[Rfam]
RNA sequence: CCACCAGACCGGGCCCCUCUGGCAGCUCGCAUGAGCUGUGAUGUCGGACUGGAUCG
Numbered sequence: 001c002c003a004c005c006a007g008a009c010c011g012g013g014c015c016c017c018u019c020u021g022g023c024a025g026c027u028c029g030c031a032u033g034a035g036c037u038g039u040g041a042u043g044u045c046g047g048a049c050u051g052g053a054u055c056g
Stems, first nucleotide, its partner, number of pairs: 006050002009047004022039007
RNA: terC RNA
Organism: Rhizobium sp. LC145